[Rfam]
The record is a 100-nucleotide sequence from Ornithinibacillus bavariensis, which matches "Purine riboswitch aptamer" in Rfam. Riboswitches are metabolite binding domains within certain messenger RNAs that serve as precision sensors for their corresponding targets.
RNA sequence: AACAAAAAAAUAACGGACCCUCAUAUAUUUCUUGGGAUAUGGCCUUGAAGUCUCUACCCGGCACCGUAAAUGCCGGACUAUGAGGGAAGAUGAAUCUUUG
Numbered sequence: 001a002a003c004a005a006a007a008a009a010a011u012a013a014c015g016g017a018c019c020c021u022c023a024u025a026u027a028u029u030u031c032u033u034g035g036g037a038u039a040u041g042g043c044c045u046u047g048a049a050g051u052c053u054c055u056a057c058c059c060g061g062c063a064c065c066g067u068a069a070a071u072g073c074c075g076g077a078c079u080a081u082g083a084g085g086g087a088a089g090a091u092g093a094a095u096c097u098u099u100g
Stems, first nucleotide, its partner, number of pairs: 018086008029049003034044002058076006